Notes: Shown here is an 85-nucleotide RNA from Thermomonas sp. HDW16, a member of the family "SAH (S-adenosyl-L-homocysteine) riboswitch aptamer".
RNA sequence: UCCAUCGAGGGGCGCUGCAAGCCCGGCACGCGAUGCAAGGGAACAGGCUCGAUGGCAGCGAACGAUGCAACGGCGCCCGUUACUG
Numbered sequence: 001u002c003c004a005u006c007g008a009g010g011g012g013c014g015c016u017g018c019a020a021g022c023c024c025g026g027c028a029c030g031c032g033a034u035g036c037a038a039g040g041g042a043a044c045a046g047g048c049u050c051g052a053u054g055g056c057a058g059c060g061a062a063c064g065a066u067g068c069a070a071c072g073g074c075g076c077c078c079g080u081u082a083c084u085g
Base pairs, nucleotide, nucleotide: 002055003054004053005052006051007050008049022041023040024039